[Rfam]
RNA sequence: GUAACUAUCGGCGAUGGAUGUCCGCCUGGGUGAACACUCGUCCGAACCGCCUCGUAUCGAGGCUGAUGGCUCCUGCUGCAUU
Numbered sequence: 001g002u003a004a005c006u007a008u009c010g011g012c013g014a015u016g017g018a019u020g021u022c023c024g025c026c027u028g029g030g031u032g033a034a035c036a037c038u039c040g041u042c043c044g045a046a047c048c049g050c051c052u053c054g055u056a057u058c059g060a061g062g063c064u065g066a067u068g069g070c071u072c073c074u075g076c077u078g079c080a081u082u
Stems, first nucleotide, its partner, number of pairs: 010026004016073003020070003049063004
A member of the RNA family "Fluoride riboswitch aptamer (crcB RNA motif)" from Mycobacterium sherrisii, 82 nucleotides long.
NCBI's taxonomy places the organism under Bacteria, Mycobacteriales, Mycobacteriaceae, Mycobacterium, Mycobacterium simiae complex.
The base pairs follow the family's consensus structure, which is taken from published work.
For this family Rfam cites "Fluoride ion encapsulation by Mg2+ ions and phosphates in a fluoride riboswitch" (Ren et al., Nature, 2012).
Its family is annotated with response to fluoride and positive regulation of gene expression in the Gene Ontology.